Description: Small nucleolar RNA SNORA5: a 124-nucleotide RNA sequence from Myotis brandtii. Pairs were carried over by alignment from the consensus structure, which was predicted with RNAfold. NCBI's taxonomy places the organism under Eukaryota, Deuterostomia, Craniata, Vespertilionidae, Myotis. Clan: SNORA5 clan. By type it is an H/ACA-box small nucleolar RNA. Rfam's curators write: ACA5 is a member of the H/ACA class of snoRNA that guide the sites of modification of uridines to pseudouridines.

[Rfam]
RNA sequence: UGCAGCCGUGUCAAAUUCGGUGCCUGGCAGGCACUGGCCCGGAAGGCUGCCAUAGAAACAAUGUGGUACAUGGGCCCUGGUCCCCUCUGCUGGGCCUCAGGGAUAAAUUUGGCUACAGACACCA
Numbered sequence: 001u002g003c004a005g006c007c008g009u010g011u012c013a014a015a016u017u018c019g020g021u022g023c024c025u026g027g028c029a030g031g032c033a034c035u036g037g038c039c040c041g042g043a044a045g046g047c048u049g050c051c052a053u054a055g056a057a058a059c060a061a062u063g064u065g066g067u068a069c070a071u072g073g074g075c076c077c078u079g080g081u082c083c084c085c086u087c088u089g090c091u092g093g094g095c096c097u098c099a100g101g102g103a104u105a106a107a108u109u110u111g112g113c114u115a116c117a118g119a120c121a122c123c124a
Base pairs, nucleotide, nucleotide: 002050003049004048005047018036019035020034021033022032023031024030025029063116064115065114066113067112075102076101077100078099079098